The record is a 108-nucleotide RNA sequence from Oceanobacillus iheyensis, which matches "SAM riboswitch aptamer (S box leader)" in Rfam.
NCBI's taxonomy places the organism under Bacteria, Bacillati, Bacilli, Oceanobacillus, Oceanobacillus iheyensis.
The family has 457 seed sequences and 9,625 matches in Rfam 15.1.
The family's consensus secondary structure is taken from published work.
Its family is annotated with regulation of gene expression in the Gene Ontology.
RNA sequence: UUCUUAUCGAGAGAAGCUAAGGGACCUGGCCUGUUGACGCUUCAGCAACCUCUAUCUCCAUUAGAAAGGUGCUACCUCCAGCAAGAUGUAUGUCUUGAAAGAUAAGAG
Numbered sequence: 001u002u003c004u005u006a007u008c009g010a011g012a013g014a015a016g017c018u019a020a021g022g023g024a025c026c027u028g029g030c031c032u033g034u035u036g037a038c039g040c041u042u043c044a045g046c047a048a049c050c051u052c053u054a055u056c057u058c059c060a061u062u063a064g065a066a067a068g069g070u071g072c073u074a075c076c077u078c079c080a081g082c083a084a085g086a087u088g089u090a091u092g093u094c095u096u097g098a099a100a101g102a103u104a105a106g107a108g
Stems, first nucleotide, its partner, number of pairs: 001108008013043005021032003026081004044073004049069002051065004077100001082097006